The record is a 91-nucleotide RNA sequence from Nomascus leucogenys, which matches "mir-1324 microRNA precursor family" in Rfam.
A search with the family's covariance model found it, with a score of 84 bits.
Pairs were carried over by alignment from the consensus structure, which was predicted with RNAalifold.
The organism belongs to Nomascus, within Eukaryota.
RNA sequence: UUUGAAGAGGUGAAUGCAGCCUGGACCUGCCUUCACUGGGAACUCCCUUCCUUCUGGGUACUAGACAGAAUUCUGUGCACUUUCCUGGAGG
Numbered sequence: 001u002u003u004g005a006a007g008a009g010g011u012g013a014a015u016g017c018a019g020c021c022u023g024g025a026c027c028u029g030c031c032u033u034c035a036c037u038g039g040g041a042a043c044u045c046c047c048u049u050c051c052u053u054c055u056g057g058g059u060a061c062u063a064g065a066c067a068g069a070a071u072u073c074u075g076u077g078c079a080c081u082u083u084c085c086u087g088g089a090g091g
Stems, first nucleotide, its partner, number of pairs: 001091003007083006014076002016073001018071001021064004029059004038052005